[Rfam]
RNA sequence: CCGUGCUAGGUGGGGAGGUAGCGGUGCCCUGUACCCGCAAUCCGCUCUAGCGGGACUGAAUCCCUUCCCCCGGUCGAUAUUCUGCAGGGUCUGCCUUAAGCAAGUGGUGUUGACGUUUGGGUCCUGCGCAAUGAGAAUCCACGAACCAUGUCAGGUCCGGAAGGAAGCAGCAUUAAGUGGACCAUCUCAUGUGCCGCAGGGGUGCCUGAACCGAGCUAACUGCUUAAGUAACGCUUGUGGGAGUCGGUCAAAGGAAGGUGCACGG
Numbered sequence: 001c002c003g004u005g006c007u008a009g010g011u012g013g014g015g016a017g018g019u020a021g022c023g024g025u026g027c028c029c030u031g032u033a034c035c036c037g038c039a040a041u042c043c044g045c046u047c048u049a050g051c052g053g054g055a056c057u058g059a060a061u062c063c064c065u066u067c068c069c070c071c072g073g074u075c076g077a078u079a080u081u082c083u084g085c086a087g088g089g090u091c092u093g094c095c096u097u098a099a100g101c102a103a104g105u106g107g108u109g110u111u112g113a114c115g116u117u118u119g120g121g122u123c124c125u126g127c128g129c130a131a132u133g134a135g136a137a138u139c140c141a142c143g144a145a146c147c148a149u150g151u152c153a154g155g156u157c158c159g160g161a162a163g164g165a166a167g168c169a170g171c172a173u174u175a176a177g178u179g180g181a182c183c184a185u186c187u188c189a190u191g192u193g194c195c196g197c198a199g200g201g202g203u204g205c206c207u208g209a210a211c212c213g214a215g216c217u218a219a220c221u222g223c224u225u226a227a228g229u230a231a232c233g234c235u236u237g238u239g240g241g242a243g244u245c246g247g248u249c250a251a252a253g254g255a256a257g258g259u260g261c262a263c264g265g
Base pairs, nucleotide, nucleotide: 001265002264003263004262005261006260009057010056011055012030013029014028015027017025019023034054035053036052037051038050063258064257065256066255067254068253072249073248074247075246076245080242081241082240083239084238085237086236087235088234092230093229096227097226098225099224100223101222104220105219106217107216108215115211116210117209118208119207120206121205122204123200124199125198126197127196128195129191130190132189133188134187135186136185138181139180140179141178142177148173149172150171151170156165157164158163
Dot-bracket structure: ((((((..(((((((.(.(...).).))))...(((((...........)))))))).....((((((...(((((...(((((((((...((..((((((..(((((......((((((((((((((((.(((((.(((((.....((((....(((....)))....))))...)))))...)))))))...))))))...))))))))...))).)).)))))).))...)))))))))..)))))...)))))).))))))

Annotation: This 265-nucleotide sequence from Bacillus smithii belongs to the Rfam family "Bacterial large signal recognition particle RNA". The organism belongs to Bacillus smithii, within Bacteria. Rfam's curators write: The signal recognition particle (SRP) is a universally conserved ribonucleoprotein involved in the co-translational targeting of proteins to membranes. Rfam links the family to the GO terms signal recognition particle, plasma membrane targeting and SRP-dependent cotranslational protein targeting to membrane, signal sequence recognition. By type it is a non-coding RNA gene.